[Rfam]
RNA sequence: AGAUGUUUUUUGUGAGAGAGUCAAAUGACCGCCGAAGAUGCAAGCCUGACAAUCGUCAGUGUUGGGUGAAACUUUCAGGCAAAAGGAGCAAAAGACGGAC
Numbered sequence: 001a002g003a004u005g006u007u008u009u010u011u012g013u014g015a016g017a018g019a020g021u022c023a024a025a026u027g028a029c030c031g032c033c034g035a036a037g038a039u040g041c042a043a044g045c046c047u048g049a050c051a052a053u054c055g056u057c058a059g060u061g062u063u064g065g066g067u068g069a070a071a072c073u074u075u076c077a078g079g080c081a082a083a084a085g086g087a088g089c090a091a092a093a094g095a096c097g098g099a100c
Stems, first nucleotide, its partner, number of pairs: 006095008020029003031080003034076002038074001040072001044067008

Glycine riboswitch aptamer: a 100-nucleotide RNA sequence from Lachnospiraceae bacterium 2_1_46FAA. Rfam links the family to the GO term glycine biosynthetic process. The match comes from Rfam's covariance-model search (56 bits). The source organism's lineage runs through Bacteria, Bacillota, Clostridia, Lachnospirales and Lachnospiraceae.